The record is a 338-nucleotide RNA from Aedes aegypti, which matches "Nuclear RNase P" in Rfam. A search with the family's covariance model found it, with a score of 118 bits. Rfam describes the family as follows. Ribonuclease P (RNase P) is a ubiquitous endoribonuclease, found in archaea, bacteria and eukarya as well as chloroplasts and mitochondria. Its best characterised activity is the generation of mature 5'-ends of tRNAs by cleaving the 5'-leader elements of precursor-tRNAs. Cellular RNase Ps are ribonucleoproteins. RNA from bacterial RNase Ps retains its catalytic activity in the absence of the protein subunit, i.e. it is a ribozyme.

RNA sequence: CUAGUAUUAAUCUCGCACUUGGAGCAUCCACACGAGUAUCAAUGAUUACUCCCACAGUUCUGCUUCGGGAAGGUCUGAGAGGAAGCAAUUUAUGUCUCAGCAAGACAGCCUUUUGACAGGGGCGUUGUACAACUAGAAAUGCAGUGUGCGUCUUGGAUUUGGAGUUGUAGUGUCCCAAUCUGGGUUUCCCGGGGAUACUCAAGAAUGCCCGAUUUCACUACAGUUGCCGAUUCCCAAGUUGGAAAUGUACUUUGCUGGCAUUUUGAGCAAAAUCUGCGAGCUGUAUUUAUGUGCUGUUGCACAAAUGCAGAACUCAAUUCAGACUAGUCUAAUACUAG
Numbered sequence: 001c002u003a004g005u006a007u008u009a010a011u012c013u014c015g016c017a018c019u020u021g022g023a024g025c026a027u028c029c030a031c032a033c034g035a036g037u038a039u040c041a042a043u044g045a046u047u048a049c050u051c052c053c054a055c056a057g058u059u060c061u062g063c064u065u066c067g068g069g070a071a072g073g074u075c076u077g078a079g080a081g082g083a084a085g086c087a088a089u090u091u092a093u094g095u096c097u098c099a100g101c102a103a104g105a106c107a108g109c110c111u112u113u114u115g116a117c118a119g120g121g122g123c124g125u126u127g128u129a130c131a132a133c134u135a136g137a138a139a140u141g142c143a144g145u146g147u148g149c150g151u152c153u154u155g156g157a158u159u160u161g162g163a164g165u166u167g168u169a170g171u172g173u174c175c176c177a178a179u180c181u182g183g184g185u186u187u188c189c190c191g192g193g194g195a196u197a198c199u200c201a202a203g204a205a206u207g208c209c210c211g212a213u214u215u216c217a218c219u220a221c222a223g224u225u226g227c228c229g230a231u232u233c234c235c236a237a238g239u240u241g242g243a244a245a246u247g248u249a250c251u252u253u254g255c256u257g258g259c260a261u262u263u264u265g266a267g268c269a270a271a272a273u274c275u276g277c278g279a280g281c282u283g284u285a286u287u288u289a290u291g292u293g294c295u296g297u298u299g300c301a302c303a304a305a306u307g308c309a310g311a312a313c314u315c316a317a318u319u320c321a322g323a324c325u326a327g328u329c330u331a332a333u334a335c336u337a338g
Stems, first nucleotide, its partner, number of pairs: 001338004007332003012280006021066005034051005039045001075322005084256004093107005108123006127250005145238001147236001281310007